RNA: MIR159 microRNA precursor family
RNA sequence: GUGAGUAAAUGGGAGCUCCCUUUGAUUCAAAAGCAGGAGGGAGAGAGGGUCUUACACUGCUGCUGGUUCAUGGAUACCUCUGGGGUGCGCACGGUAAGGAAACUGCGCAGUUUAAGGGUUUGCAUGACCCAGGAGAUGUGAAUUCCUUCUCCUCUCCUUUCUUGGAUUGAAGGGAGCUCCGAUACUAUUUGCC
Numbered sequence: 001g002u003g004a005g006u007a008a009a010u011g012g013g014a015g016c017u018c019c020c021u022u023u024g025a026u027u028c029a030a031a032a033g034c035a036g037g038a039g040g041g042a043g044a045g046a047g048g049g050u051c052u053u054a055c056a057c058u059g060c061u062g063c064u065g066g067u068u069c070a071u072g073g074a075u076a077c078c079u080c081u082g083g084g085g086u087g088c089g090c091a092c093g094g095u096a097a098g099g100a101a102a103c104u105g106c107g108c109a110g111u112u113u114a115a116g117g118g119u120u121u122g123c124a125u126g127a128c129c130c131a132g133g134a135g136a137u138g139u140g141a142a143u144u145c146c147u148u149c150u151c152c153u154c155u156c157c158u159u160u161c162u163u164g165g166a167u168u169g170a171a172g173g174g175a176g177c178u179c180c181g182a183u184a185c186u187a188u189u190u191g192c193c
Base pairs, nucleotide, nucleotide: 013179014178015177016176017175018174019173020172023169024168025167026166027165028164029163036156060135061134063132064131065130069126070125071124072123077118